A member of the RNA family "Small nucleolar RNA SNORD16" from Callipepla squamata, 101 nucleotides long.
The source organism's lineage runs through Eukaryota, Dipnotetrapodomorpha, Amniota, Galloanserae and Callipepla.
By type it is a C/D-box small nucleolar RNA.
The base pairs follow the family's consensus structure, which was predicted with PFOLD.

[Rfam]
RNA sequence: UGCUGUGAUGAUGUAAUUUGCGUCUUAGCAGUGUUCAGCGGCAGUUGCCUGCUGCCGUUGUGCUGGCACUGUCGAGCUGAAGACACCUUUAAUUCUGAGCA
Numbered sequence: 001u002g003c004u005g006u007g008a009u010g011a012u013g014u015a016a017u018u019u020g021c022g023u024c025u026u027a028g029c030a031g032u033g034u035u036c037a038g039c040g041g042c043a044g045u046u047g048c049c050u051g052c053u054g055c056c057g058u059u060g061u062g063c064u065g066g067c068a069c070u071g072u073c074g075a076g077c078u079g080a081a082g083a084c085a086c087c088u089u090u091a092a093u094u095c096u097g098a099g100c101a
Stems, first nucleotide, its partner, number of pairs: 001101003021082001023080002029071005038063002040056005